[Rfam]
RNA sequence: AAAUCCUUUAGAGAGGAUGUCAUCCCAGUGCUUGACACUGGGAUCCAGCUAAGUUGGUAAGCAUAAAAGCAGCCGUUUUAUGUUAAAAUACAACGUUUUGAUGAUUAUGAAAAAACUGGAUUCCAGUGUCAGCUACUUGCAUGACACCAUUCUUUUUUU
Numbered sequence: 001a002a003a004u005c006c007u008u009u010a011g012a013g014a015g016g017a018u019g020u021c022a023u024c025c026c027a028g029u030g031c032u033u034g035a036c037a038c039u040g041g042g043a044u045c046c047a048g049c050u051a052a053g054u055u056g057g058u059a060a061g062c063a064u065a066a067a068a069g070c071a072g073c074c075g076u077u078u079u080a081u082g083u084u085a086a087a088a089u090a091c092a093a094c095g096u097u098u099u100g101a102u103g104a105u106u107a108u109g110a111a112a113a114a115a116c117u118g119g120a121u122u123c124c125a126g127u128g129u130c131a132g133c134u135a136c137u138u139g140c141a142u143g144a145c146a147c148c149a150u151u152c153u154u155u156u157u158u159u
Base pairs, nucleotide, nucleotide: 011157012156013155018146019145020144021143022142023141025139027137028136029135030134032132033131034130035129036128037127038126039125040124041123042122043121044120045119046118047117048116